Record summary
A member of the RNA family "Aggregatibacter sRNA 22" from Cricetibacter osteomyelitidis, 94 nucleotides long. It is annotated as a small RNA. Lineage of the source: Bacteria > Pseudomonadota > Gammaproteobacteria > Pasteurellaceae > Cricetibacter. The match comes from Rfam's covariance-model search (71 bits).
RNA sequence: CUGGAGAUACAAAAACUUUAGUUUUUGAACGUCGGAUUUGCCGACGGCCCCGAAGGGGUGAGCAAUCACUCCAGUGAUUGCGAAUAAUUGUAGU
Number, nucleotide and partner (000 for none) at each position: 001c000002u000003g000004g000005a000006g000007a000008u000009a000010c027011a026012a025013a024014a023015a022016c021017u000018u000019u000020a000021g016022u015023u014024u013025u012026u011027g010028a000029a000030c046031g045032u044033c043034g042035g041036a000037u000038u000039u000040g000041c035042c034043g033044a032045c031046g030047g059048c058049c057050c056051c055052g000053a000054a000055g051056g050057g049058g048059u047060g000061a000062g081063c080064a079065a078066u077067c076068a075069c074070u000071c000072c000073a000074g069075u068076g067077a066078u065079u064080g063081c062082g000083a000084a091085u090086a000087a000088u000089u000090g085091u084092a000093g000094u000
The base pairs follow the family's consensus structure, which was predicted with RNAfold.